[Rfam]
RNA: sR6 snoRNA
RNA sequence: GGAUGAUGACCAAAUAGACUGAAAGAUGAAGAAAUGCACCUCAACUGACUAAA
Numbered sequence: 001g002g003a004u005g006a007u008g009a010c011c012a013a014a015u016a017g018a019c020u021g022a023a024a025g026a027u028g029a030a031g032a033a034a035u036g037c038a039c040c041u042c043a044a045c046u047g048a049c050u051a052a053a
Stems, first nucleotide, its partner, number of pairs: 001011002024046002027043003031040001